The record is a 405-nucleotide sequence from Thalassococcus sp. S3, which matches "Bacterial RNase P class A" in Rfam.
The organism belongs to Thalassococcus, within Bacteria.
Pairs were carried over by alignment from the consensus structure, which is taken from published work.
By type it is a ribozyme.
[Rfam]
RNA sequence: GUGGAGAGCUGGAUGGCCGCUUUGGCGGGGAUGACCUGCCGGAGAGGAAAGUCCGGACUCCCUGAAGCAACGGUGCCGGGUAACGCCCGGGCGGGGCAACCCGACGGACAGCGCCACAGAAAUCAGACCGCCACGCUUGCGUGGCAAGGGUGAAACGGUGGGGUAAGAGCCCACCGCGCCCCUGGCAACAGGGGCGGCACGGCAAGCCCCACCGGGAGCAAUGCCAAAUAGGAUCCCCGCGCGGGCCCGGUCGGCGCAAGCCGAGACCGCCGCAGGCCGCUUCAGCCGGGGGGAUCGGGUUGGCAGCUAAAGGCGUCUGGCAACAGCCGCCUGAGAGGAAUGGUCAUCCAUUCGCGACCCAAGGGUCACGGAGGACAGAAUCCGGCUUACAGGCUCUCCACGCGC
Numbered sequence: 001g002u003g004g005a006g007a008g009c010u011g012g013a014u015g016g017c018c019g020c021u022u023u024g025g026c027g028g029g030g031a032u033g034a035c036c037u038g039c040c041g042g043a044g045a046g047g048a049a050a051g052u053c054c055g056g057a058c059u060c061c062c063u064g065a066a067g068c069a070a071c072g073g074u075g076c077c078g079g080g081u082a083a084c085g086c087c088c089g090g091g092c093g094g095g096g097c098a099a100c101c102c103g104a105c106g107g108a109c110a111g112c113g114c115c116a117c118a119g120a121a122a123u124c125a126g127a128c129c130g131c132c133a134c135g136c137u138u139g140c141g142u143g144g145c146a147a148g149g150g151u152g153a154a155a156c157g158g159u160g161g162g163g164u165a166a167g168a169g170c171c172c173a174c175c176g177c178g179c180c181c182c183u184g185g186c187a188a189c190a191g192g193g194g195c196g197g198c199a200c201g202g203c204a205a206g207c208c209c210c211a212c213c214g215g216g217a218g219c220a221a222u223g224c225c226a227a228a229u230a231g232g233a234u235c236c237c238c239g240c241g242c243g244g245g246c247c248c249g250g251u252c253g254g255c256g257c258a259a260g261c262c263g264a265g266a267c268c269g270c271c272g273c274a275g276g277c278c279g280c281u282u283c284a285g286c287c288g289g290g291g292g293g294a295u296c297g298g299g300u301u302g303g304c305a306g307c308u309a310a311a312g313g314c315g316u317c318u319g320g321c322a323a324c325a326g327c328c329g330c331c332u333g334a335g336a337g338g339a340a341u342g343g344u345c346a347u348c349c350a351u352u353c354g355c356g357a358c359c360c361a362a363g364g365g366u367c368a369c370g371g372a373g374g375a376c377a378g379a380a381u382c383c384g385g386c387u388u389a390c391a392g393g394c395u396c397u398c399c400a401c402g403c404g405c
Stems, first nucleotide, its partner, number of pairs: 001401010011390001012348007020044009049388003053385005058218004066282002071214005076090005091105001092103004106209002111207002113203003128149002130145006157175006176198001177196008222305004232296006273289001275287003312331004317326003
Dot-bracket structure: ((((((((((((((((((.(((((((((.......)))))))))....[[[.[[[[[((((....[[...((((((((((.....)))))(((((....)))).)((...(((((............((((((((....))))))..)).......((((((.......))))))(((((((((....)))))))).)..)))..)))))))))))))...((((......((((((...................................(.(((...]]..))).).)))))).....))))......((((.(((....))).))))..........)))))))................................]]]]]]]].).))))))))))....